Source information: This 143-nucleotide RNA from Oryzicola mucosus belongs to the Rfam family "Alphaproteobacterial sRNA ar7". Pairs were carried over by alignment from the consensus structure. For this family Rfam cites "A survey of sRNA families in alpha-proteobacteria" (del Val et al., RNA Biol, 2012).
RNA sequence: CAUCGGCAGUUUUCGCCGAGUCCGGAGUACGGCCCGUCCCCCGCCUAUACCGGACACAGCGGCAGCCUCAUCCCCCUCUCCGGGCUGCCGCCUCGUUUAGAGAAGUUGCCGCCGUGGUUCCCCUCCGCCACGGCGGCACUUUU
Numbered sequence: 001c002a003u004c005g006g007c008a009g010u011u012u013u014c015g016c017c018g019a020g021u022c023c024g025g026a027g028u029a030c031g032g033c034c035c036g037u038c039c040c041c042c043g044c045c046u047a048u049a050c051c052g053g054a055c056a057c058a059g060c061g062g063c064a065g066c067c068u069c070a071u072c073c074c075c076c077u078c079u080c081c082g083g084g085c086u087g088c089c090g091c092c093u094c095g096u097u098u099a100g101a102g103a104a105g106u107u108g109c110c111g112c113c114g115u116g117g118u119u120c121c122c123c124u125c126c127g128c129c130a131c132g133g134c135g136g137c138a139c140u141u142u143u
Stems, first nucleotide, its partner, number of pairs: 021054005027048001031045003058093001059091009105139001109136010